[Rfam]
RNA sequence: UCACAUAAUCCCUCUAACCGAGAUCACGGGGGUUACAUCUCUCAUAUCCACCAGUGAAGGGAUUGGUGGAAAUAUUAUAUCGC
Numbered sequence: 001u002c003a004c005a006u007a008a009u010c011c012c013u014c015u016a017a018c019c020g021a022g023a024u025c026a027c028g029g030g031g032g033u034u035a036c037a038u039c040u041c042u043c044a045u046a047u048c049c050a051c052c053a054g055u056g057a058a059g060g061g062a063u064u065g066g067u068g069g070a071a072a073u074a075u076u077a078u079a080u081c082g083c
Stems, first nucleotide, its partner, number of pairs: 011031004020041005048069007
Background:
This 83-nucleotide RNA sequence belongs to the Rfam family "PhotoRC-II RNA". The family's RNA type in Rfam is cis-regulatory element. It is one of the family's seed sequences.